[Rfam]
A member of the RNA family "STAXI RNA" from Xenorhabdus innexi, 163 nucleotides long. Lineage of the source: Bacteria > Pseudomonadota > Gammaproteobacteria > Enterobacterales > Xenorhabdus. Rfam classes the family as a small RNA. The match comes from Rfam's covariance-model search (100 bits).

RNA sequence: CGUUACCUUAUGGUAGCCAAUCAAUGUUCUGGCAAUCUGAGAGGAACGCUUUCGGGCGAUUGCAAAUAUCAAUGUUCUUGUAGUCUGAGAGGGAACGCCUUCGGGUGACUGCAUUAUCUGCCAUACCUGAAACGGCAGACAGUAAGAUACUCUGGGUAAAUCC
Numbered sequence: 001c002g003u004u005a006c007c008u009u010a011u012g013g014u015a016g017c018c019a020a021u022c023a024a025u026g027u028u029c030u031g032g033c034a035a036u037c038u039g040a041g042a043g044g045a046a047c048g049c050u051u052u053c054g055g056g057c058g059a060u061u062g063c064a065a066a067u068a069u070c071a072a073u074g075u076u077c078u079u080g081u082a083g084u085c086u087g088a089g090a091g092g093g094a095a096c097g098c099c100u101u102c103g104g105g106u107g108a109c110u111g112c113a114u115u116a117u118c119u120g121c122c123a124u125a126c127c128u129g130a131a132a133c134g135g136c137a138g139a140c141a142g143u144a145a146g147a148u149a150c151u152c153u154g155g156g157u158a159a160a161u162c163c
Stems, first nucleotide, its partner, number of pairs: 002017006026047005032063006048057003074096005080112006097106003117138001124158004140154003